[Rfam]
RNA sequence: AAGACAGCUGAUACCUUUGUUGCAAUAGUCAGAGUCUUUAGUCAAAGAA
Numbered sequence: 001a002a003g004a005c006a007g008c009u010g011a012u013a014c015c016u017u018u019g020u021u022g023c024a025a026u027a028g029u030c031a032g033a034g035u036c037u038u039u040a041g042u043c044a045a046a047g048a049a
Stems, first nucleotide, its partner, number of pairs: 001037001003035001008032002012027002015047005
RNA: Exoribonuclease-resistant RNA (xrRNA) plant-infecting virus (class 3)
Organism: Polerovirus BPV